A member of the RNA family "Small nucleolar RNA Z247" from Carya illinoinensis, 139 nucleotides long. Lineage of the source: Eukaryota > Viridiplantae > Pentapetalae > fabids > Carya. By type it is a C/D-box small nucleolar RNA. A search with the family's covariance model found it, with a score of 46 bits.
RNA sequence: CCUCUCACUGAUUGUGAGCUCAUUAGUUACAUUUUUUCAGGGUUUAGUUUGGACUAUGAUCCAUUUAUAACCUCCCUCAAAACUCGACUUGAAUCAAUGACCUUCCAGGAGACAUAUGGGCACCUCCUCAAUUAUGAAU
Numbered sequence: 001c002c003u004c005u006c007a008c009u010g011a012u013u014g015u016g017a018g019c020u021c022a023u024u025a026g027u028u029a030c031a032u033u034u035u036u037u038c039a040g041g042g043u044u045u046a047g048u049u050u051g052g053a054c055u056a057u058g059a060u061c062c063a064u065u066u067a068u069a070a071c072c073u074c075c076c077u078c079a080a081a082a083c084u085c086g087a088c089u090u091g092a093a094u095c096a097a098u099g100a101c102c103u104u105c106c107a108g109g110a111g112a113c114a115u116a117u118g119g120g121c122a123c124c125u126c127c128u129c130a131a132u133u134a135u136g137a138a139u
Stems, first nucleotide, its partner, number of pairs: 005137003088108002091105003
On this family, see Chen et al., Nucleic Acids Res 2003: "The high diversity of snoRNAs in plants: identification and comparative study of 120 snoRNA genes from Oryza sativa".